Rfam assigns this 98-nucleotide RNA sequence from Erysipelotrichaceae bacterium 5_2_54FAA to the family "SAM riboswitch aptamer (S box leader)".

RNA sequence: UUUUUAUCAAGAGUUGGGGUAGAGAGUUAGCUCGAUAAUCCCACACCAACCUGUAUGGGGUAAAUCAUAUAAGGUGGUACAGCUAACAGCGAUAAGAG
Numbered sequence: 001u002u003u004u005u006a007u008c009a010a011g012a013g014u015u016g017g018g019g020u021a022g023a024g025a026g027u028u029a030g031c032u033c034g035a036u037a038a039u040c041c042c043a044c045a046c047c048a049a050c051c052u053g054u055a056u057g058g059g060g061u062a063a064a065u066c067a068u069a070u071a072a073g074g075u076g077g078u079a080c081a082g083c084u085a086a087c088a089g090c091g092a093u094a095a096g097a098g
Base pairs, nucleotide, nucleotide: 001098002097003096004095005094006093007092008091013044015043016042017041018040022033023032024031027086028085029084030083045078046077047076048075050074051073052071053070054069055068056067057066082090
Notes:
Rfam's curators write: The SAM riboswitch is found upstream of a number of genes which code for proteins involved in methionine or cysteine biosynthesis in Gram-positive bacteria. The source organism's lineage runs through Bacteria, Bacillati, Erysipelotrichia, Erysipelotrichales and Erysipelotrichaceae. The family has 457 seed sequences and 9,625 matches in Rfam 15.1.